[Rfam]
RNA: Bacterial large subunit ribosomal RNA, nucleotides 2837 to 3099
RNA sequence: GGAUACUUGAGAAGGGCUGUCCCUAGUACGAGAGGACCGGGACGGACGAACCUCUGGUGUGCCAGUUGUCCCGCCAGGGGCACGGCUGGUUAGCUACGUUCGGAAGGGAUAACCGCUGAAAGCAUCUAAGCGGGAAGCUCGCUUCAAGAUGAGGUAUCCCACCAUCUUCGGAUGGGUAAGGCCCCCAGCUAGACGACUGGGUUGAUAGGCCGGAAAUGUAAGCCCGGUAACGGGUUCAGUUGACCGGUACUAAUAGGCCGAGG
Numbered sequence: 001g002g003a004u005a006c007u008u009g010a011g012a013a014g015g016g017c018u019g020u021c022c023c024u025a026g027u028a029c030g031a032g033a034g035g036a037c038c039g040g041g042a043c044g045g046a047c048g049a050a051c052c053u054c055u056g057g058u059g060u061g062c063c064a065g066u067u068g069u070c071c072c073g074c075c076a077g078g079g080g081c082a083c084g085g086c087u088g089g090u091u092a093g094c095u096a097c098g099u100u101c102g103g104a105a106g107g108g109a110u111a112a113c114c115g116c117u118g119a120a121a122g123c124a125u126c127u128a129a130g131c132g133g134g135a136a137g138c139u140c141g142c143u144u145c146a147a148g149a150u151g152a153g154g155u156a157u158c159c160c161a162c163c164a165u166c167u168u169c170g171g172a173u174g175g176g177u178a179a180g181g182c183c184c185c186c187a188g189c190u191a192g193a194c195g196a197c198u199g200g201g202u203u204g205a206u207a208g209g210c211c212g213g214a215a216a217u218g219u220a221a222g223c224c225c226g227g228u229a230a231c232g233g234g235u236u237c238a239g240u241u242g243a244c245c246g247g248u249a250c251u252a253a254u255a256g257g258c259c260g261a262g263g
Stems, first nucleotide, its partner, number of pairs: 001159008011145004017045007047102005055096003062089005067082006106140003113133005162175003177261001180259004184201005206252003209248005215241002222235005